Annotation: The family of this 95-nucleotide RNA sequence from Rhododendron simsii is "MIR535 microRNA precursor family". NCBI's taxonomy places the organism under Eukaryota, Viridiplantae, Tracheophyta, eudicotyledons, Rhododendron. Rfam links the family to the GO terms RISC complex and miRNA-mediated post-transcriptional gene silencing. A search with the family's covariance model found it, with a score of 92 bits. A reference for the family is Zeng et al. (2010), "Conservation and divergence of microRNAs and their functions in Euphorbiaceous plants", Nucleic Acids Res.
[Rfam]
RNA sequence: AUGAUUAAUUGACGACGAGAGAGAGCACGCUAGUAAGCAUUCAUGAACAAGAUGUGAUUGUCUACAAGCGUGCUCUCUAUCGUUGUCAUAUGAUA
Number, nucleotide and partner (000 for none) at each position: 001a000002u000003g000004a000005u000006u000007a000008a000009u000010u088011g087012a086013c085014g084015a000016c082017g081018a000019g000020a078021g077022a000023g075024a000025g073026c072027a071028c070029g069030c068031u067032a000033g065034u064035a000036a000037g000038c000039a000040u000041u000042c000043a000044u000045g000046a000047a000048c000049a000050a000051g000052a000053u000054g000055u000056g000057a000058u000059u000060g000061u000062c000063u000064a034065c033066a000067a031068g030069c029070g028071u027072g026073c025074u000075c023076u000077c021078u020079a000080u000081c017082g016083u000084u014085g013086u012087c011088a010089u000090a000091u000092g000093a000094u000095a000